[Rfam]
RNA: Alphaproteobacteria transfer-messenger RNA
Organism: Oceanomicrobium pacificus
RNA sequence: CCCCUUCAAAUCCGCCGCGCGCGGGCCUAUAUUUGAUCCGUUCCUCCGGGGACUAUGGUGAUAAACGCGCAUGUAAUAAGCGGAUCGGACCCGGGGGCGGUACCCGGCGGCUCCACCAACAUCCUUCGUUUGGGGAUCAUGGGGCCGAAACAGGAUCGACGGACGUGUAAAGAUGUUGCUUUCACUCGGCGGACGGCCACCGUUAUCGGCGUAAAAAGCAUAGUUGCAAACGACAAUCGUGCUCCGGUUGCUCUCGCUGCGUAAGCAGUGCGAAAUACCGAAAUCUAAGUCCUGAGACCUAGCAGUUUCAGGCGGGGUUCGCAGGCACCUGGCAACAGAAGCCUGCAUU
Number, nucleotide and partner (000 for none) at each position: 001c000002c000003c000004c000005u000006u000007c000008a000009a000010a000011u000012c000013c000014g000015c000016c000017g000018c000019g000020c000021g000022c000023g000024g000025g000026c000027c000028u000029a000030u000031a000032u000033u000034u000035g000036a000037u000038c000039c000040g053041u052042u051043c050044c049045u000046c000047c000048g000049g044050g043051g042052a041053c040054u000055a000056u000057g186058g185059u184060g183061a182062u000063a000064a000065a000066c000067g179068c178069g176070c175071a174072u173073g000074u000075a000076a000077u000078a000079a000080g000081c165082g164083g000084a000085u162086c161087g160088g000089a000090c000091c107092c106093g105094g104095g103096g000097g000098c000099g000100g000101u000102a000103c095104c094105c093106g092107g091108c147109g146110g145111c144112u143113c142114c141115a000116c000117c000118a000119a000120c000121a000122u000123c000124c000125u000126u000127c000128g000129u000130u000131u000132g000133g000134g000135g000136a000137u000138c000139a000140u000141g114142g113143g112144g111145c110146c109147g108148a000149a000150a000151c000152a000153g000154g000155a000156u000157c000158g000159a000160c087161g086162g085163a000164c082165g081166u000167g000168u000169a000170a000171a000172g000173a072174u071175g070176u069177u000178g068179c067180u000181u000182u061183c060184a059185c058186u057187c202188g201189g200190c000191g000192g000193a212194c211195g000196g210197c209198c208199a000200c189201c188202g187203u000204u000205a000206u000207c000208g198209g197210c196211g194212u193213a000214a000215a000216a000217a000218g000219c000220a000221u000222a000223g000224u000225u000226g000227c000228a000229a000230a000231c000232g000233a000234c000235a000236a000237u000238c000239g000240u000241g000242c000243u000244c000245c000246g000247g000248u000249u000250g000251c000252u000253c000254u000255c000256g000257c000258u000259g000260c000261g000262u000263a000264a000265g000266c000267a000268g000269u000270g000271c000272g000273a000274a000275a000276u000277a000278c000279c000280g000281a000282a000283a000284u000285c000286u000287a000288a000289g000290u000291c000292c000293u000294g000295a000296g000297a000298c000299c000300u000301a000302g000303c000304a000305g000306u000307u000308u000309c000310a000311g000312g000313c000314g000315g330316g329317g328318u327319u000320c000321g346322c345323a344324g343325g342326c341327a318328c317329c316330u315331g000332g000333c000334a000335a000336c000337a000338g000339a000340a000341g326342c325343c324344u323345g322346c321347a000348u000349u000